[Rfam]
RNA sequence: AGCCUAACCCUUUUGAAUUUCAAGAGGUAUGGUGAAAAAGGUCCCGCUAGAGUAUAAAAGACUCCUCGUCAGAGUCACUCUAGCGGGUCAUAUCAGGAAACUGGUAUGGGUGGGCCUCGGUCUAUC
Dot-bracket structure: .(((....(((((((.....)))))))...))).........(((((((((((......((((.........))))))))))))))).((((((((....))))))))((((((......))))))
Numbered sequence: 001a002g003c004c005u006a007a008c009c010c011u012u013u014u015g016a017a018u019u020u021c022a023a024g025a026g027g028u029a030u031g032g033u034g035a036a037a038a039a040g041g042u043c044c045c046g047c048u049a050g051a052g053u054a055u056a057a058a059a060g061a062c063u064c065c066u067c068g069u070c071a072g073a074g075u076c077a078c079u080c081u082a083g084c085g086g087g088u089c090a091u092a093u094c095a096g097g098a099a100a101c102u103g104g105u106a107u108g109g110g111u112g113g114g115c116c117u118c119g120g121u122c123u124a125u126c
Stems, first nucleotide, its partner, number of pairs: 002033003009027007043087011060076004089108008109126006

Source information:
The record is a 126-nucleotide RNA sequence, which matches "LOOT RNA" in Rfam. Rfam classes the family as a small RNA.